[Rfam]
RNA sequence: CUAAUGAAACAGAUGAAGUGGAGUAUGACACGAGCAUGUAUCAUUUUAGUGAGCAUGUACCUCCAGCGAGGGAGAGCAAGAGUUUGAGUGAAUCUCACAGAAACAACAGCAAGUUGCAAAAGUGGUGCAAGAAACAAGAUAAAUUACUCAUUAAGUGCUUCAAGGCUAUCAAGUUUCUGAAGGACAAGCUAAGCUGCUCCUCUUCCACUACUGCUAUUCCG
Numbered sequence: 001c002u003a004a005u006g007a008a009a010c011a012g013a014u015g016a017a018g019u020g021g022a023g024u025a026u027g028a029c030a031c032g033a034g035c036a037u038g039u040a041u042c043a044u045u046u047u048a049g050u051g052a053g054c055a056u057g058u059a060c061c062u063c064c065a066g067c068g069a070g071g072g073a074g075a076g077c078a079a080g081a082g083u084u085u086g087a088g089u090g091a092a093u094c095u096c097a098c099a100g101a102a103a104c105a106a107c108a109g110c111a112a113g114u115u116g117c118a119a120a121a122g123u124g125g126u127g128c129a130a131g132a133a134a135c136a137a138g139a140u141a142a143a144u145u146a147c148u149c150a151u152u153a154a155g156u157g158c159u160u161c162a163a164g165g166c167u168a169u170c171a172a173g174u175u176u177c178u179g180a181a182g183g184a185c186a187a188g189c190u191a192a193g194c195u196g197c198u199c200c201u202c203u204u205c206c207a208c209u210a211c212u213g214c215u216a217u218u219c220c221g
Stems, first nucleotide, its partner, number of pairs: 001221001004218001012208001015205004020200006
RNA: MIR854 microRNA precursor family
Organism: Arabidopsis thaliana